A member of the RNA family "mir-137 microRNA precursor family" from Drosophila melanogaster, 72 nucleotides long. Pairs were carried over by alignment from the consensus structure, which was predicted with RNAalifold.
RNA sequence: AAUGGCCACGUGUAUGCUCGUAGCUAUAACCUGAAAUCCAAAUGUUAUUGCUUGAGAAUACACGUAGUUCAC
Numbered sequence: 001a002a003u004g005g006c007c008a009c010g011u012g013u014a015u016g017c018u019c020g021u022a023g024c025u026a027u028a029a030c031c032u033g034a035a036a037u038c039c040a041a042a043u044g045u046u047a048u049u050g051c052u053u054g055a056g057a058a059u060a061c062a063c064g065u066a067g068u069u070c071a072c
Base pairs, nucleotide, nucleotide: 004069005068008065009064010063012061013060014059015058017056018055019054020053022052023051024050026048027047028046029045030044032041
About this RNA:
For this family Rfam cites "Evolution, biogenesis, expression, and target predictions of a substantially expanded set of Drosophila microRNAs" (Ruby et al., Genome Res, 2007).